[Rfam]
RNA sequence: UAAUAUCUUCAGGGCAGGGUGCAAUUCCCUACCGGUGGUACAGCCCACGAGCCGCAAGGCAUGAUUCGGUGAAACUCCGAAGCCGACAGUACAGUCUGGAUGAAAGAAGAUGGAA
Numbered sequence: 001u002a003a004u005a006u007c008u009u010c011a012g013g014g015c016a017g018g019g020u021g022c023a024a025u026u027c028c029c030u031a032c033c034g035g036u037g038g039u040a041c042a043g044c045c046c047a048c049g050a051g052c053c054g055c056a057a058g059g060c061a062u063g064a065u066u067c068g069g070u071g072a073a074a075c076u077c078c079g080a081a082g083c084c085g086a087c088a089g090u091a092c093a094g095u096c097u098g099g100a101u102g103a104a105a106g107a108a109g110a111u112g113g114a115a
Stems, first nucleotide, its partner, number of pairs: 004112007017029003031095002033085002035048004043083002053059001065081005087098003

Rfam assigns this 115-nucleotide RNA from Enterocloster bolteae to the family "FMN riboswitch aptamer (RFN element)". The base pairs follow the family's consensus structure, which is taken from published work.